[Rfam]
RNA sequence: GCCUCGGUAGUGUAAUGGAAAGCACGGCAGACCGGAUACCUGUAAGUGCGGGUACGAAUCCCGCCCGAGGUU
Numbered sequence: 001g002c003c004u005c006g007g008u009a010g011u012g013u014a015a016u017g018g019a020a021a022g023c024a025c026g027g028c029a030g031a032c033c034g035g036a037u038a039c040c041u042g043u044a045a046g047u048g049c050g051g052g053u054a055c056g057a058a059u060c061c062c063g064c065c066c067g068a069g070g071u072u
Stems, first nucleotide, its partner, number of pairs: 001071007010025004027043004048064005

Annotation
Shown here is a 72-nucleotide sequence from Dictyocaulus viviparus, a member of the family "tRNA". Lineage of the source: Eukaryota > Ecdysozoa > Rhabditina > Metastrongylidae > Dictyocaulus.